ZMP/ZTP riboswitch aptamer (pfl RNA motif): an 86-nucleotide RNA sequence from Frankia alni. It is one of the family's seed sequences.
RNA sequence: GCUGGGAGUCGCGACUGGCGCACAGAGGUGGAACUGACCACCGGGGAGCGAUGAGCGGGUCGGUGCCGUGCGCCUGGGUGCCUCCG
Dot-bracket structure: ..((...(((((..(([[[[[......((((......))))..))..)))))...)).....(((((..]]]]]..))))).....